[Rfam]
RNA: Small nucleolar RNA SNORA71
Organism: Melospiza melodia
RNA sequence: UCCUGCAUUCGAAAGUGAUUACGGUCCCGCCUGUGGCCGGGUCAUUGAUAGUGCAGGGAGAGGAGAGCGAGAGUUUUCCCGUGUUUGGGGGAGUCUGUGUCUCCCCCAAACCCUAUUGCUGUCGGACA
Numbered sequence: 001u002c003c004u005g006c007a008u009u010c011g012a013a014a015g016u017g018a019u020u021a022c023g024g025u026c027c028c029g030c031c032u033g034u035g036g037c038c039g040g041g042u043c044a045u046u047g048a049u050a051g052u053g054c055a056g057g058g059a060g061a062g063g064a065g066a067g068c069g070a071g072a073g074u075u076u077u078c079c080c081g082u083g084u085u086u087g088g089g090g091g092a093g094u095c096u097g098u099g100u101c102u103c104c105c106c107c108a109a110a111c112c113c114u115a116u117u118g119c120u121g122u123c124g125g126a127c128a
Stems, first nucleotide, its partner, number of pairs: 001058009014046007023038004068124003072120003083111005088105003092102002